[Rfam]
RNA sequence: AUCUGACAGAAUGACGGAUUCGAUCGUUGUGGUCGGCGGGCCACCACGUCAUUCCUUCGCACUGUCUCCGGGCAGACCGCCAU
Number, nucleotide and partner (000 for none) at each position: 001a000002u000003c000004u000005g000006a000007c000008a000009g000010a000011a000012u000013g000014a000015c000016g000017g000018a000019u000020u000021c000022g000023a000024u000025c048026g047027u046028u000029g044030u043031g042032g041033u040034c000035g081036g080037c079038g078039g077040g033041c032042c031043a030044c029045c000046a027047c026048g025049u000050c000051a000052u000053u000054c000055c000056u000057u000058c000059g000060c000061a000062c075063u074064g073065u072066c071067u000068c000069c000070g000071g066072g065073c064074a063075g062076a000077c039078c038079g037080c036081c035082a000083u000

A member of the RNA family "Cyanobacterial ribosomal protein S1 leader" from Synechococcus sp. RS9917, 83 nucleotides long.
The family's consensus secondary structure is taken from published work.
A reference for the family is Weinberg et al. (2007), "Identification of 22 candidate structured RNAs in bacteria using the CMfinder comparative genomics pipeline", Nucleic Acids Res.
Lineage of the source: Bacteria > Cyanobacteriota > Synechococcales > Synechococcaceae > Synechococcus.
About the family: cyano-S1 is a ncRNA recognized in the 5-prime region of genes encoding 30S ribosomal protein S1, it has been proposed as an cis regulation element.
It is annotated as a cis-regulatory leader.
Rfam's curators put it in the seed alignment.